RNA sequence: GGCUUUCUUCGCGGCGGAGCUCGACCGCCCACAGCAACGGUGAUCGAUUUCAUCGACGCGCACCGUGACGAGCACGGGGUCGAGCCGAUCUGCACCACGCUCAGCGAAGCCGACUGCAAGAUCGCCCCG
Number, nucleotide and partner (000 for none) at each position: 001g000002g000003c000004u000005u000006u000007c000008u000009u000010c000011g000012c000013g029014g028015c027016g026017g025018a000019g000020c000021u000022c000023g000024a000025c017026c016027g015028c014029c013030c000031a000032c000033a000034g000035c000036a000037a000038c000039g000040g000041u000042g000043a000044u000045c000046g000047a000048u000049u000050u000051c000052a000053u000054c000055g000056a000057c000058g000059c000060g000061c000062a000063c000064c000065g000066u000067g000068a000069c000070g000071a000072g000073c000074a000075c129076g128077g127078g126079g125080u000081c000082g000083a000084g000085c000086c124087g123088a000089u121090c120091u119092g117093c116094a115095c000096c000097a000098c000099g000100c000101u000102c000103a000104g000105c000106g000107a000108a000109g000110c000111c000112g000113a000114c000115u094116g093117c092118a000119a091120g090121a089122u000123c087124g086125c079126c078127c077128c076129g075
A member of the RNA family "ALIL pseudoknot" from Metallococcus carri, 129 nucleotides long. Pairs were carried over by alignment from the consensus structure, which is taken from published work. The source organism's lineage runs through Bacteria, Actinomycetota, Actinomycetes, Dermacoccaceae and Metallococcus. Rfam links the family to the GO term positive regulation of translational frameshifting.